Rfam assigns this 102-nucleotide sequence from Staphylococcus epidermidis to the family "azaaromatic riboswitch aptamer (yjdF RNA)".

[Rfam]
RNA sequence: AGUAUGAAAUGUAAAAACUAAAUUGGACUUGAAGCCCCAGCGUAAAUACAUUAUUUCUCAGUAAACCUACUCCUCAGGUCGUACCUCAUUUCAUAGAAAUUA
Dot-bracket structure: ...((((((((...........((((..........)))).(.((((.....)))).)...........((....)).........))))))))........